Mason-Pfizer monkey virus packaging signal: a 271-nucleotide RNA sequence from Jaculus jaculus. Rfam links the family to the GO term viral genome packaging. It is annotated as a cis-regulatory element.
[Rfam]
RNA sequence: UGGUGCCCAGAAUAUGGACUUGAAUACAAUGGGCUUCAGUGAGGAUCGCCAACAUCAACCUGGGAUCCGCAGAAGAAAGUGAAAUUUAGAAGACGACUGUAGUUGCCUGCUCAGUCUUCUGGAUUAAGGUAAGUUGGUGCAAUUAUGGGACAAGCAAAGAGUAAAAAUGAGCUAAUUGCUGUAGUAAAAGAUAUUUUUAAAACACAAGGAAUUGGGAUUACAUAAAGUUCUUUAAGCAAAUUUUUUGAUUUUGUUAAUAAAAUGAGCCCUU
Numbered sequence: 001u002g003g004u005g006c007c008c009a010g011a012a013u014a015u016g017g018a019c020u021u022g023a024a025u026a027c028a029a030u031g032g033g034c035u036u037c038a039g040u041g042a043g044g045a046u047c048g049c050c051a052a053c054a055u056c057a058a059c060c061u062g063g064g065a066u067c068c069g070c071a072g073a074a075g076a077a078a079g080u081g082a083a084a085u086u087u088a089g090a091a092g093a094c095g096a097c098u099g100u101a102g103u104u105g106c107c108u109g110c111u112c113a114g115u116c117u118u119c120u121g122g123a124u125u126a127a128g129g130u131a132a133g134u135u136g137g138u139g140c141a142a143u144u145a146u147g148g149g150a151c152a153a154g155c156a157a158a159g160a161g162u163a164a165a166a167a168u169g170a171g172c173u174a175a176u177u178g179c180u181g182u183a184g185u186a187a188a189a190g191a192u193a194u195u196u197u198u199a200a201a202a203c204a205c206a207a208g209g210a211a212u213u214g215g216g217a218u219u220a221c222a223u224a225a226a227g228u229u230c231u232u233u234a235a236g237c238a239a240a241u242u243u244u245u246u247g248a249u250u251u252u253g254u255u256a257a258u259a260a261a262a263u264g265a266g267c268c269c270u271u
Stems, first nucleotide, its partner, number of pairs: 006033003015026002038046001040045001084130003087126002095118001098114001101111002134153003138149001140147002158198003161194003205247008215233003220228001256271002
Record summary:
A search with the family's covariance model found it, with a score of 63 bits. This family represents a group of sequences that are related to the Mason-Pfizer monkey virus (MPMV) packaging signal.